[Rfam]
RNA sequence: UUGGCGGUGAAGUCCCAGGUGGCGUCGACGUCGAUGAGCCCGCGGUCGCCGAAGAACUCGCCGUCGGCCAGAACCGUCAGCACGGCCUCGUCGCCGAAGUGGCCCUCGGUGUAGGUGGUGACCUUGCCGUGGGCGAUCAGGUGCACCGCGUCGGCCGCCCGGCCGCGUUCGACGAUGACCUCACCGGCGCGGUACUCGCGCUGGGUGAACCGGUUGGCCAGCUCGGUCAGCGCGCCGUCGUCGCUGAGCCCGCGCAGCAGCGCCAGCUCGCGCAGCUCGGUGGGCACGAUGUCCACGUCGGCGCCGGUGUUGGUGAAGGUGACGCGCCCGUCGCCCAGGGUGUAGCUGAGCCUGCGGUUGACCCGGUACACCGCGCCCUGGGCCUCGACCCACGGCAGCAUCCGCAGCAGCCAGCGCGGGCUGAUCUCCUGCAUCUGCGGGACGGACUUGGUGGUGGUCGCGAGAUUGCGCGCGGCCCUGGUGCUCAGGCUCUGCUGCUGUUGCUCGGA
Numbered sequence: 001u002u003g004g005c006g007g008u009g010a011a012g013u014c015c016c017a018g019g020u021g022g023c024g025u026c027g028a029c030g031u032c033g034a035u036g037a038g039c040c041c042g043c044g045g046u047c048g049c050c051g052a053a054g055a056a057c058u059c060g061c062c063g064u065c066g067g068c069c070a071g072a073a074c075c076g077u078c079a080g081c082a083c084g085g086c087c088u089c090g091u092c093g094c095c096g097a098a099g100u101g102g103c104c105c106u107c108g109g110u111g112u113a114g115g116u117g118g119u120g121a122c123c124u125u126g127c128c129g130u131g132g133g134c135g136a137u138c139a140g141g142u143g144c145a146c147c148g149c150g151u152c153g154g155c156c157g158c159c160c161g162g163c164c165g166c167g168u169u170c171g172a173c174g175a176u177g178a179c180c181u182c183a184c185c186g187g188c189g190c191g192g193u194a195c196u197c198g199c200g201c202u203g204g205g206u207g208a209a210c211c212g213g214u215u216g217g218c219c220a221g222c223u224c225g226g227u228c229a230g231c232g233c234g235c236c237g238u239c240g241u242c243g244c245u246g247a248g249c250c251c252g253c254g255c256a257g258c259a260g261c262g263c264c265a266g267c268u269c270g271c272g273c274a275g276c277u278c279g280g281u282g283g284g285c286a287c288g289a290u291g292u293c294c295a296c297g298u299c300g301g302c303g304c305c306g307g308u309g310u311u312g313g314u315g316a317a318g319g320u321g322a323c324g325c326g327c328c329c330g331u332c333g334c335c336c337a338g339g340g341u342g343u344a345g346c347u348g349a350g351c352c353u354g355c356g357g358u359u360g361a362c363c364c365g366g367u368a369c370a371c372c373g374c375g376c377c378c379u380g381g382g383c384c385u386c387g388a389c390c391c392a393c394g395g396c397a398g399c400a401u402c403c404g405c406a407g408c409a410g411c412c413a414g415c416g417c418g419g420g421c422u423g424a425u426c427u428c429c430u431g432c433a434u435c436u437g438c439g440g441g442a443c444g445g446a447c448u449u450g451g452u453g454g455u456g457g458u459c460g461c462g463a464g465a466u467u468g469c470g471c472g473c474g475g476c477c478c479u480g481g482u483g484c485u486c487a488g489g490c491u492c493u494g495c496u497g498c499u500g501u502u503g504c505u506c507g508g509a
Base pairs, nucleotide, nucleotide: 006390007389008388011385012384014382015381016380018328019327021325025322026321027320029318031316032315035313037311038310039309041307045305047303048302049301050300051299052298054233057230058229060227061226062225063224065111066110068108077102078101079100083096084095085094086093117222119220120219122217123216127212129210130209132206134204135202138198140196143195149191150190154188155187156186157185163177166174167173168172234296237293240290241289242288243287249283250282253279254278256277257276258275260271261270262269329342330341331340332339354376355375356374360372391431392430394428395427397425399423400422403418404417405416407415437476438475440473443470444469446467448464449463451461452460477508478507481502486497487496488495
RNA: Saccharopolyspora sRNA 350